[Rfam]
RNA sequence: GGCUGCGUGGUGAGCACAAAGCGAACUAUUCUUUCGCCUUUUACUAAAGAAUACCGUGUGCGCGCCACAAGGAGCAGCGUACUCUAAUUUUUGGAGGGUGCUUCCUCCUUGACGAGGAAA
Numbered sequence: 001g002g003c004u005g006c007g008u009g010g011u012g013a014g015c016a017c018a019a020a021g022c023g024a025a026c027u028a029u030u031c032u033u034u035c036g037c038c039u040u041u042u043a044c045u046a047a048a049g050a051a052u053a054c055c056g057u058g059u060g061c062g063c064g065c066c067a068c069a070a071g072g073a074g075c076a077g078c079g080u081a082c083u084c085u086a087a088u089u090u091u092u093g094g095a096g097g098g099u100g101c102u103u104c105c106u107c108c109u110u111g112a113c114g115a116g117g118a119a120a
Stems, first nucleotide, its partner, number of pairs: 003077004008067005014061005027053008102119005
Background: The record is a 120-nucleotide sequence from Setaria italica, which matches "U5 spliceosomal RNA" in Rfam. U5 RNA is a component of both types of known spliceosome. The precise function of this molecule is unknown, though it is known that the 5' loop is required for splice site selection and p220 binding, and that both the 3' stem-loop and the Sm site are important for Sm protein binding and cap methylation. The source organism's lineage runs through Eukaryota, Streptophyta, Euphyllophyta, Spermatophyta and Setaria. The match comes from Rfam's covariance-model search (87 bits).